Shown here is a 113-nucleotide RNA from Halalkalibacter oceani, a member of the family "SAM riboswitch aptamer (S box leader)".

RNA sequence: CUCUUAUUAAGAGCAGGUGGAGGGACGAGCCCGAUGAAGCCCGGCAACCUGUUUCAACCGAGCGGUUGAUUCAAGGUGCUAAUUCUCUCAAGCGCAAAGCUGACAGAUAAGAG
Dot-bracket structure: ((((((((....(..(((...(((..[[[)))......))))((((.((.(.(...............).)...))))))...(]]].((..........))..)))))))))
Record summary
The match comes from Rfam's covariance-model search (65 bits). Pairs were carried over by alignment from the consensus structure, which is taken from published work.